[Rfam]
RNA sequence: AGUUGCCCGAUCUGGAUGUUCCUCUUAGUCAUACUCGAUGUGAUAUGACUAGAGACACAUUCAGCUCGGCUUCAAG
Numbered sequence: 001a002g003u004u005g006c007c008c009g010a011u012c013u014g015g016a017u018g019u020u021c022c023u024c025u026u027a028g029u030c031a032u033a034c035u036c037g038a039u040g041u042g043a044u045a046u047g048a049c050u051a052g053a054g055a056c057a058c059a060u061u062c063a064g065c066u067c068g069g070c071u072u073c074a075a076g
Stems, first nucleotide, its partner, number of pairs: 005071001007069003012064008023054001027050007
Rfam assigns this 76-nucleotide RNA sequence from Nippostrongylus brasiliensis to the family "mir-44 microRNA precursor family". Rfam 15.1 lists 66 matches to the family in 44 species. Taxonomically the source falls in Nippostrongylus (Eukaryota, Protostomia, Rhabditida, Strongyloidea).